This 74-nucleotide RNA belongs to the Rfam family "caiA RNA". Rfam's curators put it in the seed alignment.
RNA sequence: GGAACAUAGAGAGGAUGCCGCAUCCACAUUCUCUUAUGUUAUGAUACAAUUCACAAGGAGGAACUAAAAACAUG
Numbered sequence: 001g002g003a004a005c006a007u008a009g010a011g012a013g014g015a016u017g018c019c020g021c022a023u024c025c026a027c028a029u030u031c032u033c034u035u036a037u038g039u040u041a042u043g044a045u046a047c048a049a050u051u052c053a054c055a056a057g058g059a060g061g062a063a064c065u066a067a068a069a070a071c072a073u074g
Stems, first nucleotide, its partner, number of pairs: 004039004009035009